[Rfam]
RNA: THF (Tetrahydrofolate) riboswitch aptamer
Organism: Clostridium saccharobutylicum
RNA sequence: UACAGAGUAGAUAUUUGUGCGUUAAGUGUUAAAAGAACGGGAAGUUGUCUUUUAAACGAAAAAUUCUUUGAAUUUGCGGUACAAAUAUUGCAUUCCGCUGUU
Number, nucleotide and partner (000 for none) at each position: 001u000002a101003c100004a099005g098006a000007g000008u000009a000010g089011a088012u087013a086014u085015u084016u083017g082018u081019g080020c078021g077022u076023u000024a000025a000026g057027u056028g000029u055030u054031a053032a052033a051034a050035g049036a048037a000038c000039g000040g095041g094042a093043a000044g091045u000046u000047g000048u036049c035050u034051u033052u032053u031054a030055a029056a027057c026058g000059a000060a000061a075062a074063a073064u072065u000066c000067u000068u000069u000070g000071a000072a064073u063074u062075u061076g022077c021078g020079g000080u019081a018082c017083a016084a015085a014086u013087a012088u011089u010090g000091c044092a000093u042094u041095c040096c000097g000098c005099u004100g003101u002102u000